[Rfam]
RNA sequence: GCGUGGAAAUGAUGAUUUUUCUCUUUAGUCGGAUACCCCUUCACUCUAAAUCAUGAGUGAGAACCACCAUCUGACACGC
Numbered sequence: 001g002c003g004u005g006g007a008a009a010u011g012a013u014g015a016u017u018u019u020u021c022u023c024u025u026u027a028g029u030c031g032g033a034u035a036c037c038c039c040u041u042c043a044c045u046c047u048a049a050a051u052c053a054u055g056a057g058u059g060a061g062a063a064c065c066a067c068c069a070u071c072u073g074a075c076a077c078g079c
Stems, first nucleotide, its partner, number of pairs: 001079005
The family of this 79-nucleotide sequence from Scleropages formosus is "Small nucleolar RNA SNORD101". Gene Ontology terms of the family: RNA processing and nucleolus. The organism belongs to Scleropages, within Eukaryota. The match comes from Rfam's covariance-model search (50 bits).